[Rfam]
RNA sequence: CAAUUUUAUAGGCAAAACUAAUGAAAGUUAGUGACGCAAAGCUAUAGGGGCUAAGGAUUAAUCUAUGCUCGCCAGUUGCCAAA
Numbered sequence: 001c002a003a004u005u006u007u008a009u010a011g012g013c014a015a016a017a018c019u020a021a022u023g024a025a026a027g028u029u030a031g032u033g034a035c036g037c038a039a040a041g042c043u044a045u046a047g048g049g050g051c052u053a054a055g056g057a058u059u060a061a062u063c064u065a066u067g068c069u070c071g072c073c074a075g076u077u078g079c080c081a082a083a
Base pairs, nucleotide, nucleotide: 012037013036017032018031019030020029021028022027040077041076042075043074047073048072049069050068051067056063057062
Dot-bracket structure: ...........((...((((((....))))))...))..((((...(((((....((....))...)))..))))))......